mir-84 microRNA precursor family: a 73-nucleotide RNA sequence from Ascaris suum. It is one of the family's seed sequences. The family's consensus secondary structure was predicted with RNAalifold.
[Rfam]
RNA sequence: AAGGCCGAUGAGGUAGUUUAUAAAGCUGCGAGUGUGUUUUCCUUCGCAGAUUUUAGGCUAUCUCGACAGCCUU
Numbered sequence: 001a002a003g004g005c006c007g008a009u010g011a012g013g014u015a016g017u018u019u020a021u022a023a024a025g026c027u028g029c030g031a032g033u034g035u036g037u038u039u040u041c042c043u044u045c046g047c048a049g050a051u052u053u054u055a056g057g058c059u060a061u062c063u064c065g066a067c068a069g070c071c072u073u
Stems, first nucleotide, its partner, number of pairs: 003071003010064008022053003027048003